[Rfam]
RNA: Metazoan signal recognition particle RNA
RNA sequence: GCCGGGCGUCGUGGCGGGCGCUUGUGAAUCGGCUUCUCGAUGGCAGAGCGCAGGAAAGGGUUGCGGCGCGGAGUUCUUCCGUCGGCAGUGGCCGGCGGAGACCGAGCGUCCAGGCCAAGCGCUGCGUCGACAAGGGUCCUCGGGAGGAAUCCCGGAGGCGCUGGUCGAAUAAUGAGGGAUGGACGGCUCAGGGCCGGAAGGCAGCAGGCAAAAGUCCCCGCGCAGUGACAGUGGUCGGAUAGCGCACGCGAGUCGGUCAUCCGGCGGAACCGUGCCAAAACAUCCCCACUUGCGAUCGU
Numbered sequence: 001g002c003c004g005g006g007c008g009u010c011g012u013g014g015c016g017g018g019c020g021c022u023u024g025u026g027a028a029u030c031g032g033c034u035u036c037u038c039g040a041u042g043g044c045a046g047a048g049c050g051c052a053g054g055a056a057a058g059g060g061u062u063g064c065g066g067c068g069c070g071g072a073g074u075u076c077u078u079c080c081g082u083c084g085g086c087a088g089u090g091g092c093c094g095g096c097g098g099a100g101a102c103c104g105a106g107c108g109u110c111c112a113g114g115c116c117a118a119g120c121g122c123u124g125c126g127u128c129g130a131c132a133a134g135g136g137u138c139c140u141c142g143g144g145a146g147g148a149a150u151c152c153c154g155g156a157g158g159c160g161c162u163g164g165u166c167g168a169a170u171a172a173u174g175a176g177g178g179a180u181g182g183a184c185g186g187c188u189c190a191g192g193g194c195c196g197g198a199a200g201g202c203a204g205c206a207g208g209c210a211a212a213a214g215u216c217c218c219c220g221c222g223c224a225g226u227g228a229c230a231g232u233g234g235u236c237g238g239a240u241a242g243c244g245c246a247c248g249c250g251a252g253u254c255g256g257u258c259a260u261c262c263g264g265c266g267g268a269a270c271c272g273u274g275c276c277a278a279a280a281c282a283u284c285c286c287c288a289c290u291u292g293c294g295a296u297c298g299u
Stems, first nucleotide, its partner, number of pairs: 001044003004023007028041003046297002049294006058285004065276007077269008088260003092256005103248002106245004110238002113236005119229001120227008128167004133162002136159003140155006169173001176218005186209003193202003